[Rfam]
RNA sequence: UGUCGCUGCCCUCCUUGGGCGUUUCCUCCCUAGACUUGGGCCGUUCGCUCGCGCGGACGGCCCCUUUCUUUUUCAAGA
Numbered sequence: 001u002g003u004c005g006c007u008g009c010c011c012u013c014c015u016u017g018g019g020c021g022u023u024u025c026c027u028c029c030c031u032a033g034a035c036u037u038g039g040g041c042c043g044u045u046c047g048c049u050c051g052c053g054c055g056g057a058c059g060g061c062c063c064c065u066u067u068c069u070u071u072u073u074c075a076a077g078a
Stems, first nucleotide, its partner, number of pairs: 008020004038063009

Makes More Granules Regulator RNA (mmgR): a 78-nucleotide sequence from Xanthobacter tagetidis. On this family, see Corbino et al., Genome Biol 2005: "Evidence for a second class of S-adenosylmethionine riboswitches and other regulatory RNA motifs in alpha-proteobacteria". It scores 72 bits against the family's covariance model. From the family's description: SuhB later renamed mmgR (makes more granules regulator) was a putative non-coding RNA found multiple times in the Agrobacterium tumefaciens genome and related alpha-proteobacteria. The family is grouped with related families in Rfam's "suhB sRNA clan".